Shown here is a 129-nucleotide RNA from Apis cerana, a member of the family "Small nucleolar RNA SNORA79". About the family: ACA65 (SNORA79) is a member of the H/ACA class of snoRNAs that guide the sites of modification of uridines to pseudouridines. This snoRNA was identified by computational screening and its expression in mouse experimentally verified by Northern blot and primer extension analysis. Lineage of the source: Eukaryota > Eumetazoa > Mandibulata > Apini > Apis cerana. The family's RNA type in Rfam is H/ACA-box small nucleolar RNA. For this family Rfam cites "A computational screen for mammalian pseudouridylation guide H/ACA RNAs" (Schattner et al., RNA, 2006).

[Rfam]
RNA sequence: AGACAUCUGUUCCUUAGAUAUGAUAUUUCAUUUCAUGUUUGAUUUCAGAAUGUCUUAAAAUAAAUGAAUUGCUUCACCCAGAAUUGUUAUAUUCAUUACACUGUCUGGCUUUUGCGGGUUCAUACAAAU
Dot-bracket structure: ((((((.(.....(((((.((((.........)))).))))).....).))))))..........(((((.......((((((.(((..........))).).)))))........)))))........
Notes
The base pairs follow the family's consensus structure, which was predicted with RNAalifold.